[Rfam]
RNA sequence: GCCGGUCGUGGUGGUGCGCGCCUGUAGUCCCAGCUACUCGGGAGGCUGAGGCAGGAGGAUUCCUUGAGCCCAGGAGUUCUGGGCUAUAGUGCAGCUAUGCCGAUCGGGUGUUAGCACUGAGUUCUGCAUCAAUAUGGUGACCUCUUAGGAGCGGGGGGCCACCAGGUUGCCUAAGGAGGGGUGAACCGGCCCAGAUGGGAAACGGAGCAGGUCAAAACUCCCGUGCUGAUCAAAUGAUGCUGGAGACUUUUGUAAUCCUCUCAUUGUGGGCCUUGAGUGGCUCCUUUUGACUUUU
Numbered sequence: 001g002c003c004g005g006u007c008g009u010g011g012u013g014g015u016g017c018g019c020g021c022c023u024g025u026a027g028u029c030c031c032a033g034c035u036a037c038u039c040g041g042g043a044g045g046c047u048g049a050g051g052c053a054g055g056a057g058g059a060u061u062c063c064u065u066g067a068g069c070c071c072a073g074g075a076g077u078u079c080u081g082g083g084c085u086a087u088a089g090u091g092c093a094g095c096u097a098u099g100c101c102g103a104u105c106g107g108g109u110g111u112u113a114g115c116a117c118u119g120a121g122u123u124c125u126g127c128a129u130c131a132a133u134a135u136g137g138u139g140a141c142c143u144c145u146u147a148g149g150a151g152c153g154g155g156g157g158g159c160c161a162c163c164a165g166g167u168u169g170c171c172u173a174a175g176g177a178g179g180g181g182u183g184a185a186c187c188g189g190c191c192c193a194g195a196u197g198g199g200a201a202a203c204g205g206a207g208c209a210g211g212u213c214a215a216a217a218c219u220c221c222c223g224u225g226c227u228g229a230u231c232a233a234a235u236g237a238u239g240c241u242g243g244a245g246a247c248u249u250u251u252g253u254a255a256u257c258c259u260c261u262c263a264u265u266g267u268g269g270g271c272c273u274u275g276a277g278u279g280g281c282u283c284c285u286u287u288u289g290a291c292u293u294u295u
Stems, first nucleotide, its partner, number of pairs: 001046003004023002007020004028043003048293003052289006062280002065277001066273001068271005074265001080263004088256001090254003094251001097248001100245001104244002107241005112233001121231001123229002126226004130169004135164005141158006170176002178221005188213004196205001198203001
RNA: Metazoan signal recognition particle RNA
Organism: Urocitellus parryii